RNA sequence: CUUCAUAGGGAGUGAAAAAUGACAAGCAUCUGGCUGAACUGAGGUGAUGUCAUCUUACUAUUGAGAAG
Numbered sequence: 001c002u003u004c005a006u007a008g009g010g011a012g013u014g015a016a017a018a019a020u021g022a023c024a025a026g027c028a029u030c031u032g033g034c035u036g037a038a039c040u041g042a043g044g045u046g047a048u049g050u051c052a053u054c055u056u057a058c059u060a061u062u063g064a065g066a067a068g
Stems, first nucleotide, its partner, number of pairs: 001068004
RNA: Small nucleolar RNA SNORD27